[Rfam]
RNA: ALIL pseudoknot
RNA sequence: CGCAUAUUUCGCGGCGGCGGAGCUCGACCGCCCGUUCCGCAAAUGAUCGCGUUCAUCGACAAUCAUCGUGGCGUCUUUGGUGUCGGGCCGAUCUGCCGGGUCUUGGGGAUCGCACCA
Numbered sequence: 001c002g003c004a005u006a007u008u009u010c011g012c013g014g015c016g017g018c019g020g021a022g023c024u025c026g027a028c029c030g031c032c033c034g035u036u037c038c039g040c041a042a043a044u045g046a047u048c049g050c051g052u053u054c055a056u057c058g059a060c061a062a063u064c065a066u067c068g069u070g071g072c073g074u075c076u077u078u079g080g081u082g083u084c085g086g087g088c089c090g091a092u093c094u095g096c097c098g099g100g101u102c103u104u105g106g107g108g109a110u111c112g113c114a115c116c117a
Base pairs, nucleotide, nucleotide: 016032017031018030019029020028078117079116080115081114082113089112090111092109093108094107096105098103